[Rfam]
RNA sequence: CAUUACGACACGGGGUGCCGGGGUUUGGGCCGGCUGAGAUCCACACCCGUCGAACCUGCCCCAGUUAAUACUGGCGAAGGGAUGUCAGCCAUAUACGGG
Numbered sequence: 001c002a003u004u005a006c007g008a009c010a011c012g013g014g015g016u017g018c019c020g021g022g023g024u025u026u027g028g029g030c031c032g033g034c035u036g037a038g039a040u041c042c043a044c045a046c047c048c049g050u051c052g053a054a055c056c057u058g059c060c061c062c063a064g065u066u067a068a069u070a071c072u073g074g075c076g077a078a079g080g081g082a083u084g085u086c087a088g089c090c091a092u093a094u095a096c097g098g099g
Stems, first nucleotide, its partner, number of pairs: 007086004011049004016043001017034005055080003061074004

This 99-nucleotide RNA sequence from Pollutimonas thiosulfatoxidans belongs to the Rfam family "TPP riboswitch aptamer (THI element)".
The source organism's lineage runs through Bacteria, Pseudomonadati, Pseudomonadota, Burkholderiales and Pollutimonas.
The match comes from Rfam's covariance-model search (64 bits).
Rfam describes the family as follows. Vitamin B(1) in its active form thiamin pyrophosphate (TPP) is an essential coenzyme that is synthesised by coupling of pyrimidine and thiazole moieties in bacteria.